Shown here is a 156-nucleotide RNA, a member of the family "IS605-orfB-II RNA".
It is annotated as a small RNA.
The base pairs follow the family's consensus structure, which is taken from published work.
RNA sequence: CAUGAUUAGCUAUCUAUAGCUAGGAUUGUAUAAAGGGUAGUCGCAGUCACCCCAACUCCGAUUUGUAAUCAUGAAUUGUAUUUAUAGUUACAAGUGAGGUGAGAAACAACUAUAAACGUUGGGAACUUUAAUUUUAUUAAGAAAUUAAGGAACUGU
Numbered sequence: 001c002a003u004g005a006u007u008a009g010c011u012a013u014c015u016a017u018a019g020c021u022a023g024g025a026u027u028g029u030a031u032a033a034a035g036g037g038u039a040g041u042c043g044c045a046g047u048c049a050c051c052c053c054a055a056c057u058c059c060g061a062u063u064u065g066u067a068a069u070c071a072u073g074a075a076u077u078g079u080a081u082u083u084a085u086a087g088u089u090a091c092a093a094g095u096g097a098g099g100u101g102a103g104a105a106a107c108a109a110c111u112a113u114a115a116a117c118g119u120u121g122g123g124a125a126c127u128u129u130a131a132u133u134u135u136a137u138u139a140a141g142a143a144a145u146u147a148a149g150g151a152a153c154u155g156u
Stems, first nucleotide, its partner, number of pairs: 006023007035052004043156004056103003061095009073083004107121004126150009